[Rfam]
A member of the RNA family "Small nucleolar RNA SNORD70" from Trachymyrmex cornetzi, 89 nucleotides long. Pairs were carried over by alignment from the consensus structure. snoRNA HBII-234 belongs to the C/D family of snoRNAs. It is the human orthologue of the mouse MBII-234 and is predicted to guide 2'O-ribose methylation of the small 18S rRNA on position A512. It is hosted, together with HBII-95, by the core C/D box snoRNA protein encoding gene NOP5/NOP58. On this family, see Huttenhofer et al., EMBO J 2001: "RNomics: an experimental approach that identifies 201 candidates for novel, small, non-messenger RNAs in mouse".
RNA sequence: UUUAAUGUAUAUCAAUGAUGCAUAUCUAUAAUUUUGAAAAUUAAUUGUGAUAUAUUAUAAUUCGUCACUACCACUGAGCGAACAUUAAA
Numbered sequence: 001u002u003u004a005a006u007g008u009a010u011a012u013c014a015a016u017g018a019u020g021c022a023u024a025u026c027u028a029u030a031a032u033u034u035u036g037a038a039a040a041u042u043a044a045u046u047g048u049g050a051u052a053u054a055u056u057a058u059a060a061u062u063c064g065u066c067a068c069u070a071c072c073a074c075u076g077a078g079c080g081a082a083c084a085u086u087a088a089a
Stems, first nucleotide, its partner, number of pairs: 001089008010081001013078001